[Rfam]
Shown here is an 82-nucleotide sequence from Rhinopithecus bieti, a member of the family "Small nucleolar RNA SNORD115". The family has 32 seed sequences and 3,387 matches in Rfam 15.1. A reference for the family is Cavaille et al. (2000), "Identification of brain-specific and imprinted small nucleolar RNA genes exhibiting an unusual genomic organization", Proc Natl Acad Sci U S A. Taxonomically the source falls in Rhinopithecus (Eukaryota, Craniata, Teleostomi, Dipnotetrapodomorpha). It scores 92 bits against the family's covariance model. Pairs were carried over by alignment from the consensus structure, which was predicted with PFOLD.
RNA sequence: GGGCCGAUGAUGAGAACCUUAUAUUGUCCUGAAGAAAGGUGAAGACUUAAAAAUCAUGCUCCAUAGUAUUAUGCUGAAGCUC
Number, nucleotide and partner (000 for none) at each position: 001g082002g081003g080004c079005c076006g075007a000008u073009g072010a000011u000012g000013a000014g000015a000016a000017c000018c000019u000020u000021a000022u000023a000024u000025u000026g000027u000028c000029c000030u000031g000032a000033a000034g000035a000036a000037a000038g000039g000040u000041g000042a000043a000044g000045a000046c000047u000048u000049a000050a000051a000052a000053a000054u000055c000056a000057u000058g000059c000060u000061c000062c000063a000064u000065a000066g000067u000068a000069u000070u000071a000072u009073g008074c000075u006076g005077a000078a000079g004080c003081u002082c001